[Rfam]
RNA sequence: GCGGGACUGCCCGGCACGAGCCUUCGAAUAUCCCUGAGGCUAUAAGCAAUCCAUGGGAGCUGUCCCUACCUGAACCCUGGUUCGGGAUAUACGGUGCCCACCUGACGUUAGGCGUCAGUGGAUUUCCCGGCAAACGACCCAUGGUGGUUCCGCC
Numbered sequence: 001g002c003g004g005g006a007c008u009g010c011c012c013g014g015c016a017c018g019a020g021c022c023u024u025c026g027a028a029u030a031u032c033c034c035u036g037a038g039g040c041u042a043u044a045a046g047c048a049a050u051c052c053a054u055g056g057g058a059g060c061u062g063u064c065c066c067u068a069c070c071u072g073a074a075c076c077c078u079g080g081u082u083c084g085g086g087a088u089a090u091a092c093g094g095u096g097c098c099c100a101c102c103u104g105a106c107g108u109u110a111g112g113c114g115u116c117a118g119u120g121g122a123u124u125u126c127c128c129g130g131c132a133a134a135c136g137a138c139c140c141a142u143g144g145u146g147g148u149u150c151c152g153c154c
Base pairs, nucleotide, nucleotide: 002152003151004150005149006148007147008146009145010144011143013139014138017136018135031122032121033120034118035117036116037115039113040112055099056098057097059095060094061093062092063091069086070085071084072083073082
Shown here is a 154-nucleotide sequence from Alteraurantiacibacter buctensis, a member of the family "6S / SsrS RNA". By type it is a non-coding RNA gene. It scores 47 bits against the family's covariance model. The organism belongs to Alteraurantiacibacter, within Bacteria.